[Rfam]
RNA: small nucleolar RNA snoR134
RNA sequence: CUGCACGGUGCACCCCGGGCUUCUCUGAAUUUUUCAAUGACGAAGAAAGCCCCAAUGCUCGUGCUAAAGUGCGCCGUUUAGUGUUGCAGGUUUGCUUUGAUCUUUCCAACAGCUUAUUUGUGUCAAAACAACGGCUAAAUUU
Numbered sequence: 001c002u003g004c005a006c007g008g009u010g011c012a013c014c015c016c017g018g019g020c021u022u023c024u025c026u027g028a029a030u031u032u033u034u035c036a037a038u039g040a041c042g043a044a045g046a047a048a049g050c051c052c053c054a055a056u057g058c059u060c061g062u063g064c065u066a067a068a069g070u071g072c073g074c075c076g077u078u079u080a081g082u083g084u085u086g087c088a089g090g091u092u093u094g095c096u097u098u099g100a101u102c103u104u105u106c107c108a109a110c111a112g113c114u115u116a117u118u119u120g121u122g123u124c125a126a127a128a129c130a131a132c133g134g135c136u137a138a139a140u141u142u
Stems, first nucleotide, its partner, number of pairs: 003064006010058002017052005022046002024043002073135006082125002085122006094113003